[Rfam]
RNA sequence: AUAAGUCUGACAAAGUAGUGAAAACGAAAUCCGUACUUAAAUGGAAGGAACAAAUGACCUUCGGCUAUGCCGUAAAUAAGUGCCUUGAUAAUUUUUGAAUGUUUCGCCUUUUGAGUGCAUAGCAAGCGAAUUGUGCAUUAUAGCUUGUUUUAUAUUCAAGAUUUAAGUAGUUAUGGUUAAUGCUCGUGAACUCAACUAUACAAGGCAUAUUAUGGGAAGAAGGCAAAA
Numbered sequence: 001a002u003a004a005g006u007c008u009g010a011c012a013a014a015g016u017a018g019u020g021a022a023a024a025c026g027a028a029a030u031c032c033g034u035a036c037u038u039a040a041a042u043g044g045a046a047g048g049a050a051c052a053a054a055u056g057a058c059c060u061u062c063g064g065c066u067a068u069g070c071c072g073u074a075a076a077u078a079a080g081u082g083c084c085u086u087g088a089u090a091a092u093u094u095u096u097g098a099a100u101g102u103u104u105c106g107c108c109u110u111u112u113g114a115g116u117g118c119a120u121a122g123c124a125a126g127c128g129a130a131u132u133g134u135g136c137a138u139u140a141u142a143g144c145u146u147g148u149u150u151u152a153u154a155u156u157c158a159a160g161a162u163u164u165a166a167g168u169a170g171u172u173a174u175g176g177u178u179a180a181u182g183c184u185c186g187u188g189a190a191c192u193c194a195a196c197u198a199u200a201c202a203a204g205g206c207a208u209a210u211u212a213u214g215g216g217a218a219g220a221a222g223g224c225a226a227a228a
Base pairs, nucleotide, nucleotide: 004037005036006035019024062072063071064070065069080208081207082206083205084204085203086202087201089200090163091162092161093160094159096158097157098156099155100154106118107117121149122148123147124146125145126144127143167199168198169197170196171195174186175185